The family of this 247-nucleotide RNA from Pokkaliibacter plantistimulans is "Manganese Mn2+ riboswitch aptamer (yybP-ykoY)".
Rfam links the family to the GO term manganese ion binding.
RNA sequence: CAACUUGGUAGGGUGGCGGCGUCUUUGGGGAGUAGCUGACUUUCCUCCGCGCUUCAAGCCAUCACAGAGUGGCGGAAGUCUGAUUACAUCGCUCUGUCAGGAGUGGGUGUGGCGGGUGAAAGUGUCUGAGUCAACAUUCUCGGUCCGCAGACCGUGGCUCAGGCGACCGACAGGUUAGCGAGACCAUUGACAGAUCAGCGCCAUAAAGGCCGGGCGCGCGAUCUGUCAUGGUUAUUUGCCCGGCCUG
Numbered sequence: 001c002a003a004c005u006u007g008g009u010a011g012g013g014u015g016g017c018g019g020c021g022u023c024u025u026u027g028g029g030g031a032g033u034a035g036c037u038g039a040c041u042u043u044c045c046u047c048c049g050c051g052c053u054u055c056a057a058g059c060c061a062u063c064a065c066a067g068a069g070u071g072g073c074g075g076a077a078g079u080c081u082g083a084u085u086a087c088a089u090c091g092c093u094c095u096g097u098c099a100g101g102a103g104u105g106g107g108u109g110u111g112g113c114g115g116g117u118g119a120a121a122g123u124g125u126c127u128g129a130g131u132c133a134a135c136a137u138u139c140u141c142g143g144u145c146c147g148c149a150g151a152c153c154g155u156g157g158c159u160c161a162g163g164c165g166a167c168c169g170a171c172a173g174g175u176u177a178g179c180g181a182g183a184c185c186a187u188u189g190a191c192a193g194a195u196c197a198g199c200g201c202c203a204u205a206a207a208g209g210c211c212g213g214g215c216g217c218g219c220g221a222u223c224u225g226u227c228a229u230g231g232u233u234a235u236u237u238g239c240c241c242g243g244c245c246u247g
Stems, first nucleotide, its partner, number of pairs: 040122005124164010141154005171247001
Dot-bracket structure: .......................................(((((.........................................................................))))).((((((((((.......(((((....)))))))))))))))......(...........................................................................)